[Rfam]
RNA sequence: UCUGAUCCAUGAUGAUCACUUAACACAAUGAGGACUGUUGGAUGAAGCUUGCGGAUAUGGGACUGAGAUCAGAU
Numbered sequence: 001u002c003u004g005a006u007c008c009a010u011g012a013u014g015a016u017c018a019c020u021u022a023a024c025a026c027a028a029u030g031a032g033g034a035c036u037g038u039u040g041g042a043u044g045a046a047g048c049u050u051g052c053g054g055a056u057a058u059g060g061g062a063c064u065g066a067g068a069u070c071a072g073a074u
Stems, first nucleotide, its partner, number of pairs: 001073005

Small nucleolar RNA SNORD99: a 74-nucleotide RNA sequence from Sparus aurata. The match comes from Rfam's covariance-model search (75 bits). A reference for the family is Huttenhofer et al. (2001), "RNomics: an experimental approach that identifies 201 candidates for novel, small, non-messenger RNAs in mouse", EMBO J. Rfam links the family to the GO terms RNA processing and nucleolus. NCBI's taxonomy places the organism under Eukaryota, Eumetazoa, Gnathostomata, Euacanthomorphacea, Sparus. The family is grouped with related families in Rfam's "SNORD58 clan".